Shown here is a 167-nucleotide sequence from Chitinimonas sp. BJB300, a member of the family "Proteobacterial sRNA psRNA2".
[Rfam]
Nucleotides: 167
Base pairs, nucleotide, nucleotide: 001067002066003065004064005063006062007061009060010059014025015024016023017022027058028057029056030055032053033052034051035050037048038047074132075131076130080127081126084125085124089106090105091103092102093101094100095099109121110120111119113118154167155166157164
Number, partner (000 for none) and nucleotide at each position: 001067g002066g003065g004064u005063u006062a007061c008000u009060c010059c011000u012000u013000g014025g015024c016023g017022c018000u019000u020000g021000c022017g023016c024015g025014c026000u027058g028057u029056u030055u031000c032053g033052a034051u035050a036000a037048a038047g039000a040000u041000u042000c043000g044000c045000a046000c047038c048037u049000g050035u051034a052033u053032c054000a055030a056029a057028a058027c059010g060009g061007g062006u063005a064004a065003c066002c067001c068000c069000a070000c071000c072000a073000u074132u075131u076130g077000c078000a079000a080127g081126g082000u083000g084125a085124g086000a087000c088000u089106g090105u091103c092102a093101g094100a095099u096000c097000a098000a099095g100094u101093c102092u103091g104000a105090a106089c107000u108000u109121c110120u111119a112000c113118a114000a115000c116000u117000a118113u119111u120110g121109g122000c123000a124085c125084u126081u127080c128000u129000u130076c131075a132074a133000c134000c135000a136000c137000a138000u139000a140000a141000a142000u143000g144000a145000a146000c147000g148000c149000u150000u151000c152000a153000c154167c155166a156000c157164c158000u159000a160000u161000u162000c163000a164157g165000u166155u167154g
Rfam 15.1 lists 122 matches to the family in 36 species. The base pairs follow the family's consensus structure.